[Rfam]
RNA sequence: CAUUGGUGUGAUGAUAUAUUUUACGGAAUAUACGAUGUCGACUUCAAUAUUCAGACUACAAUUAUCUGAUCAAUG
Numbered sequence: 001c002a003u004u005g006g007u008g009u010g011a012u013g014a015u016a017u018a019u020u021u022u023a024c025g026g027a028a029u030a031u032a033c034g035a036u037g038u039c040g041a042c043u044u045c046a047a048u049a050u051u052c053a054g055a056c057u058a059c060a061a062u063u064a065u066c067u068g069a070u071c072a073a074u075g
Stems, first nucleotide, its partner, number of pairs: 001075006
Annotation
Small nucleolar RNA Z155: a 75-nucleotide RNA from Tripterygium wilfordii. The family has 8 seed sequences and 429 matches in Rfam 15.1. It is annotated as a C/D-box small nucleolar RNA. On this family, see Chen et al., Nucleic Acids Res 2003: "The high diversity of snoRNAs in plants: identification and comparative study of 120 snoRNA genes from Oryza sativa". Taxonomically the source falls in Tripterygium (Eukaryota, Embryophyta, Euphyllophyta, Gunneridae).